[Rfam]
RNA sequence: AAGGUCUCCUACGCUACUGCCAUGGACUGGUUCAUUGCCGUCUGCUUUGCUUUC
Numbered sequence: 001a002a003g004g005u006c007u008c009c010u011a012c013g014c015u016a017c018u019g020c021c022a023u024g025g026a027c028u029g030g031u032u033c034a035u036u037g038c039c040g041u042c043u044g045c046u047u048u049g050c051u052u053u054c
Stems, first nucleotide, its partner, number of pairs: 002053002008049001011046001013045002016041002019038002022035005

Rfam assigns this 54-nucleotide RNA from Danionella cerebrum to the family "Editing element of GABA-3 exon 9". A search with the family's covariance model found it, with a score of 62 bits. A reference for the family is Ohlson et al. (2007), "Editing modifies the GABA(A) receptor subunit alpha3", RNA. By type it is a cis-regulatory element. Rfam 15.1 lists 4,208 matches to the family in 654 species.